[Rfam]
RNA sequence: CAUUCUAAUGGUUAGAGUGUUUAUGCAGAAAUCCUCUGCGUAAGUCAUGGAACGACUUUUAAGGAGAAAACAAUG
Numbered sequence: 001c002a003u004u005c006u007a008a009u010g011g012u013u014a015g016a017g018u019g020u021u022u023a024u025g026c027a028g029a030a031a032u033c034c035u036c037u038g039c040g041u042a043a044g045u046c047a048u049g050g051a052a053c054g055a056c057u058u059u060u061a062a063g064g065a066g067a068a069a070a071c072a073a074u075g
Stems, first nucleotide, its partner, number of pairs: 001019006022042007043057004
RNA: freshwater-2 RNA